Overview
SAM (S-adenosyl methionine) riboswitch aptamer: a 115-nucleotide RNA from Actinoplanes sp. N902-109. The match comes from Rfam's covariance-model search (112 bits). Clan: SAM clan.
[Rfam]
RNA sequence: GGUCAUGAGUGCCAGCACGAAGCCCCGGCUUGCUGGCCGGCAACCCUUCCGUCCGCGAUGGGGUGCCCCGGGUGAGGACCAGGCUCGCGCCGACCGGCGCGGGCAAGCGCGAGAC
Numbered sequence: 001g002g003u004c005a006u007g008a009g010u011g012c013c014a015g016c017a018c019g020a021a022g023c024c025c026c027g028g029c030u031u032g033c034u035g036g037c038c039g040g041c042a043a044c045c046c047u048u049c050c051g052u053c054c055g056c057g058a059u060g061g062g063g064u065g066c067c068c069c070g071g072g073u074g075a076g077g078a079c080c081a082g083g084c085u086c087g088c089g090c091c092g093a094c095c096g097g098c099g100c101g102g103g104c105a106a107g108c109g110c111g112a113g114a115c
Base pairs, nucleotide, nucleotide: 001080002079003078004077009038011037012036013035014034015033016032021030022029039067040066041065044063045062046061048058049057083104084103085102086101087100088099089098090097091096